About this RNA
The family of this 600-nucleotide part of an RNA from Heliothis virescens is "Eukaryotic small subunit ribosomal RNA". A search with the family's covariance model found it, with a score of 967 bits. NCBI's taxonomy places the organism under Eukaryota, Protostomia, Pancrustacea, Ditrysia, Heliothis.
[Rfam]
RNA sequence: AAAAAUUGUUGCGGUUAAAAGCUCGUAGUGCAUUUGUGCGCCGCCUGUCGGUGCACCGCAUCGCGGUGAACUGACACGUCUGCGGAGCAUAUCGUCGGUGCAGCCGAAACGCAUAAUACGCCGGCUUCAAUAUCAAAAUUCCUUACGGCGGUGCUCCGGUGAGUUCGAGGUGGGCCGACCAAUUUUUACUUUGAACAAAUUUAGAGUGCUCUAAACGCGGCUCAAAUGCUGCUUGAAUAUUCGUGCAUGGAUUAAUAGAAAUGAUCUCGGUUCUAUUUUGUGGUUUCAGCAACUCCGAGGUAGAUGAUUAAGUUUAGCAUAACUGGGGCAUCUCGUAUGCGACGUUAGAGGUGAAAUUCUUGUAUCGUCCGCAAGAACGAAAACCGAUCAGCGAAAGCAUUUUGCCAAAGGUGUUUUCAUCAAAUCAAGACGAAAAGUUAGAGGUUCGAAGGCGAUUAGAUACCGCCCUAGUUCUAACCGUAAAUAUGCAUCUAGCGAUCGCGAACGUUAAAAAAAAACUACAAUGGUCGGCGGGCAGCUUCCGGGAAACCAAAGAUUUAUGGACUCCGCGGGGAGUAUGGUGCUGCAAAGCGAAACUUA
Numbered sequence: 001a002a003a004a005a006u007u008g009u010u011g012c013g014g015u016u017a018a019a020a021g022c023u024c025g026u027a028g029u030g031c032a033u034u035u036g037u038g039c040g041c042c043g044c045c046u047g048u049c050g051g052u053g054c055a056c057c058g059c060a061u062c063g064c065g066g067u068g069a070a071c072u073g074a075c076a077c078g079u080c081u082g083c084g085g086a087g088c089a090u091a092u093c094g095u096c097g098g099u100g101c102a103g104c105c106g107a108a109a110c111g112c113a114u115a116a117u118a119c120g121c122c123g124g125c126u127u128c129a130a131u132a133u134c135a136a137a138a139u140u141c142c143u144u145a146c147g148g149c150g151g152u153g154c155u156c157c158g159g160u161g162a163g164u165u166c167g168a169g170g171u172g173g174g175c176c177g178a179c180c181a182a183u184u185u186u187u188a189c190u191u192u193g194a195a196c197a198a199a200u201u202u203a204g205a206g207u208g209c210u211c212u213a214a215a216c217g218c219g220g221c222u223c224a225a226a227u228g229c230u231g232c233u234u235g236a237a238u239a240u241u242c243g244u245g246c247a248u249g250g251a252u253u254a255a256u257a258g259a260a261a262u263g264a265u266c267u268c269g270g271u272u273c274u275a276u277u278u279u280g281u282g283g284u285u286u287c288a289g290c291a292a293c294u295c296c297g298a299g300g301u302a303g304a305u306g307a308u309u310a311a312g313u314u315u316a317g318c319a320u321a322a323c324u325g326g327g328g329c330a331u332c333u334c335g336u337a338u339g340c341g342a343c344g345u346u347a348g349a350g351g352u353g354a355a356a357u358u359c360u361u362g363u364a365u366c367g368u369c370c371g372c373a374a375g376a377a378c379g380a381a382a383a384c385c386g387a388u389c390a391g392c393g394a395a396a397g398c399a400u401u402u403u404g405c406c407a408a409a410g411g412u413g414u415u416u417u418c419a420u421c422a423a424a425u426c427a428a429g430a431c432g433a434a435a436a437g438u439u440a441g442a443g444g445u446u447c448g449a450a451g452g453c454g455a456u457u458a459g460a461u462a463c464c465g466c467c468c469u470a471g472u473u474c475u476a477a478c479c480g481u482a483a484a485u486a487u488g489c490a491u492c493u494a495g496c497g498a499u500c501g502c503g504a505a506c507g508u509u510a511a512a513a514a515a516a517a518a519c520u521a522c523a524a525u526g527g528u529c530g531g532c533g534g535g536c537a538g539c540u541u542c543c544g545g546g547a548a549a550c551c552a553a554a555g556a557u558u559u560a561u562g563g564a565c566u567c568c569g570c571g572g573g574g575a576g577u578a579u580g581g582u583g584c585u586g587c588a589a590a591g592c593g594a595a596a597c598u599u600a
Stems, first nucleotide, its partner, number of pairs: 012569003020566001023430002028425002316416002320413002323410002327406004334379002338373003341369004348359003388399001391398002437478006447471001451467004488565001489563001490557003494540003499534004505528002508526001544551002571599003583592003